[Rfam]
RNA sequence: GUUCCCAGUGAUGAUUAACUACCAUGCUAAUUCUGAGAUUCCUUUCAGUCUCAAUGAAGUGAAUCUUUUGUUUAUCCAGAACAUCUGAGGGAACU
Numbered sequence: 001g002u003u004c005c006c007a008g009u010g011a012u013g014a015u016u017a018a019c020u021a022c023c024a025u026g027c028u029a030a031u032u033c034u035g036a037g038a039u040u041c042c043u044u045u046c047a048g049u050c051u052c053a054a055u056g057a058a059g060u061g062a063a064u065c066u067u068u069u070g071u072u073u074a075u076c077c078a079g080a081a082c083a084u085c086u087g088a089g090g091g092a093a094c095u
Base pairs, nucleotide, nucleotide: 001094002093003092004091005090